Record summary: The family of this 78-nucleotide RNA sequence from Aquibacillus halophilus is "c-di-GMP-I riboswitch aptamer". The family's consensus secondary structure is taken from published work. The source organism's lineage runs through Bacteria, Bacillota, Bacilli, Bacillaceae and Aquibacillus. About the family: GEMM was predicted in a large-scale screen for bacterial structured RNA regulatory elements. Genes associated with GEMM are involved in a diverse array of functions, including chemotaxis regulation, signal transduction, secretion and chitin. The match comes from Rfam's covariance-model search (44 bits).
RNA sequence: CACACGAAAAGGCAAGGCUUUUGGCGAAGCCACGCAAAACUAUAGGGGCUAAUUUUUUAGAGCCAGCCAGUUACCGAA
Numbered sequence: 001c002a003c004a005c006g007a008a009a010a011g012g013c014a015a016g017g018c019u020u021u022u023g024g025c026g027a028a029g030c031c032a033c034g035c036a037a038a039a040c041u042a043u044a045g046g047g048g049c050u051a052a053u054u055u056u057u058u059a060g061a062g063c064c065a066g067c068c069a070g071u072u073a074c075c076g077a078a
Base pairs, nucleotide, nucleotide: 012035013034017030018029019028020027021026038072039071040070041069045068046067047064048063049062055060

Its family is annotated with cyclic-di-GMP binding in the Gene Ontology.